[Rfam]
RNA sequence: UCGUAGGCUUGCUGUGGGCAGAUGAGGUGGAUGUGACUAUCAAACCCACCAGCUGUGAUGAUCUUAUGCUCACCGGCAAUAACAUCCGUCGCUGCACCAAUUACGAGAGCAGGGUCUACGCCUUGCAUCACAUCUGGGUUGCCUGCUUUGCCGAUUCCAACGAUAAGACCAUUCUUGAUGCCAAUGUCUGCUUUGUAGAUCCCCGUCCAGUCGACAAUAAGGGCGUUGGUUAUGACAGUGUCUAGACAUUCCGCGUCGCGGCGACCACUGGCUUGACCCAUACCAUCACGG
Numbered sequence: 001u002c003g004u005a006g007g008c009u010u011g012c013u014g015u016g017g018g019c020a021g022a023u024g025a026g027g028u029g030g031a032u033g034u035g036a037c038u039a040u041c042a043a044a045c046c047c048a049c050c051a052g053c054u055g056u057g058a059u060g061a062u063c064u065u066a067u068g069c070u071c072a073c074c075g076g077c078a079a080u081a082a083c084a085u086c087c088g089u090c091g092c093u094g095c096a097c098c099a100a101u102u103a104c105g106a107g108a109g110c111a112g113g114g115u116c117u118a119c120g121c122c123u124u125g126c127a128u129c130a131c132a133u134c135u136g137g138g139u140u141g142c143c144u145g146c147u148u149u150g151c152c153g154a155u156u157c158c159a160a161c162g163a164u165a166a167g168a169c170c171a172u173u174c175u176u177g178a179u180g181c182c183a184a185u186g187u188c189u190g191c192u193u194u195g196u197a198g199a200u201c202c203c204c205g206u207c208c209a210g211u212c213g214a215c216a217a218u219a220a221g222g223g224c225g226u227u228g229g230u231u232a233u234g235a236c237a238g239u240g241u242c243u244a245g246a247c248a249u250u251c252c253g254c255g256u257c258g259c260g261g262c263g264a265c266c267a268c269u270g271g272c273u274u275g276a277c278c279c280a281u282a283c284c285a286u287c288a289c290g291g
Stems, first nucleotide, its partner, number of pairs: 002290003006287002009163003013159002016074002020070002028051003032048002035046001038043001055067003075152002079148001088142002091139003096133001105129002109126004114121002170275002175271003179267002181261002189225006204213002227258003234251002238249003
Annotation
The family of this 291-nucleotide sequence from Fulvia fulva is "5' ureB small RNA". Lineage of the source: Eukaryota > Ascomycota > dothideomyceta > Mycosphaerellales > Fulvia.